[Rfam]
Nucleotides: 251
Stems, first nucleotide, its partner, number of pairs: 001195005007190008016104003020098005026092003033048005050071003054066003106163004111157006119150003123147006164176004198215005221244004228239002
Number, partner (000 for none) and nucleotide at each position: 001195g002194a003193a004192a005191a006000c007190g008189c009188g010187g011186u012185c013184a014183a015000a016104g017103g018102c019000a020098g021097c022096a023095u024094c025000a026092g027091a028090g029000u030000u031000a032000g033048g034047g035046c036045a037044u038000a039000a040000a041000c042000c043000a044037a045036u046035g047034c048033c049000a050071a051070a052069g053000u054066a055065c056064u057000g058000g059000a060000a061000a062000a063000a064056a065055g066054u067000u068000u069052c070051u071050u072000a073000a074000u075000a076000a077000c078000c079000a080000u081000a082000g083000c084000g085000a086000u087000c088000u089000c090028c091027u092026c093000a094024g095023a096022u097021g098020c099000a100000a101000g102018g103017c104016c105000a106163u107162g108161a109160a110000a111157u112156u113155a114154g115153c116152c117000a118000c119150c120149u121148g122000c123147g124146u125145a126144u127143u128142u129000u130000u131000u132000u133000a134000u135000g136000c137000a138000a139000u140000u141000u142128a143127a144126a145125u146124g147123c148121c149120a150119g151000c152116g153115g154114c155113u156112a157111a158000g159000c160109u161108u162107u163106a164176a165175g166174a167173c168000a169000a170000c171000c172000a173167g174166u175165c176164u177000a178000a179000c180000g181000g182000a183014u184013u185012g186011a187010c188009c189008g190007c191005u192004u193003u194002u195001c196000c197000u198215c199214u200213u201212u202211g203000u204000c205000u206000u207000a208000u209000u210000u211202c212201a213200a214199a215198g216000u217000a218000u219000a220000g221244a222243c223242c224241g225000u226000u227000u228239u229238g230000c231000u232000u233000a234000a235000u236000u237000c238229c239228a240000c241224c242223g243222g244221u245000a246000u247000g248000g249000c250000c251000u
Overview:
Shown here is a 251-nucleotide sequence from Legionella pneumophila, a member of the family "Legionella RNA 17". Lineage of the source: Bacteria > Pseudomonadati > Legionellaceae > Legionella pneumophila > Legionella pneumophila subsp. pneumophila. The family's consensus secondary structure was predicted with RNAfold. The family's RNA type in Rfam is small RNA. Rfam's curators put it in the seed alignment. On this family, see Weissenmayer et al., PLoS One 2011: "Sequencing illustrates the transcriptional response of Legionella pneumophila during infection and identifies seventy novel small non-coding RNAs".